Rfam assigns this 74-nucleotide RNA sequence from Algoriphagus sanaruensis to the family "tRNA". The family's RNA type in Rfam is transfer RNA. Pairs were carried over by alignment from the consensus structure, which is taken from published work.

[Rfam]
RNA sequence: GCAGGCGUAGUUCAACUGGAUAGAAUAUCGGAUUUCGGCUCCGAGGGUUGAGGGUUCGAAUCCUUCCGCCUGUA
Numbered sequence: 001g002c003a004g005g006c007g008u009a010g011u012u013c014a015a016c017u018g019g020a021u022a023g024a025a026u027a028u029c030g031g032a033u034u035u036c037g038g039c040u041c042c043g044a045g046g047g048u049u050g051a052g053g054g055u056u057c058g059a060a061u062c063c064u065u066c067c068g069c070c071u072g073u074a
Base pairs, nucleotide, nucleotide: 001073002072003071004070005069006068007067010026011025012024013023028044029043030042031041032040050066051065052064053063054062